RNA: L2-Alphaproteobacteria ribosomal protein leader
Organism: Tritonibacter litoralis
RNA sequence: GGGGACCUUCGGGGCCCUAUAUACUUGGUCACCUGAACCCGUCGCACCACGAUUAAGGCGCAGCAAGGCAGGGGGCUUUCACAUAGCGGUAUCCAGUUCUUCCCCGGGUAUCGCACGCUAAACGGAAGACAGAAA
Numbered sequence: 001g002g003g004g005a006c007c008u009u010c011g012g013g014g015c016c017c018u019a020u021a022u023a024c025u026u027g028g029u030c031a032c033c034u035g036a037a038c039c040c041g042u043c044g045c046a047c048c049a050c051g052a053u054u055a056a057g058g059c060g061c062a063g064c065a066a067g068g069c070a071g072g073g074g075g076c077u078u079u080c081a082c083a084u085a086g087c088g089g090u091a092u093c094c095a096g097u098u099c100u101u102c103c104c105c106g107g108g109u110a111u112c113g114c115a116c117g118c119u120a121a122a123c124g125g126a127a128g129a130c131a132g133a134a135a
Base pairs, nucleotide, nucleotide: 001018002017003016004015006014007013008012027112028111029110032107